[Rfam]
RNA sequence: AAGCGUGCUCCGGGGUCGGUGAAACUCCGAACCGGCGGUGAUAGUCCGCGACCCGGCCGCAACAGCGGCUGGUUGACCCGGUGGAACUCCGGGACCGACGGUUAAAGUCCGGAUGGGAGGCAGCACGCGC
Numbered sequence: 001a002a003g004c005g006u007g008c009u010c011c012g013g014g015g016u017c018g019g020u021g022a023a024a025c026u027c028c029g030a031a032c033c034g035g036c037g038g039u040g041a042u043a044g045u046c047c048g049c050g051a052c053c054c055g056g057c058c059g060c061a062a063c064a065g066c067g068g069c070u071g072g073u074u075g076a077c078c079c080g081g082u083g084g085a086a087c088u089c090c091g092g093g094a095c096c097g098a099c100g101g102u103u104a105a106a107g108u109c110c111g112g113a114u115g116g117g118a119g120g121c122a123g124c125a126c127g128c129g130c
Stems, first nucleotide, its partner, number of pairs: 003128007010119001017029003031108002033097002035049004044095002053072002077093005099111003
The family of this 130-nucleotide RNA sequence from Trebonia kvetii is "FMN riboswitch aptamer (RFN element)".
Pairs were carried over by alignment from the consensus structure, which is taken from published work.
A search with the family's covariance model found it, with a score of 101 bits.
Its family is annotated with FMN binding in the Gene Ontology.